[Rfam]
RNA sequence: GCGCAGACGUUGGGAGAAUCUGUUCUCAGAUGCCGAAGGAGCAACCGCCCCGGUAAACUCUCAGGCCCCCGGACCAACGUCGGCAC
Numbered sequence: 001g002c003g004c005a006g007a008c009g010u011u012g013g014g015a016g017a018a019u020c021u022g023u024u025c026u027c028a029g030a031u032g033c034c035g036a037a038g039g040a041g042c043a044a045c046c047g048c049c050c051c052g053g054u055a056a057a058c059u060c061u062c063a064g065g066c067c068c069c070c071g072g073a074c075c076a077a078c079g080u081c082g083g084c085a086c
Stems, first nucleotide, its partner, number of pairs: 006081008019030004032066003035062002039060003045053002
RNA: Glycine riboswitch aptamer
Organism: Actibacterium pelagium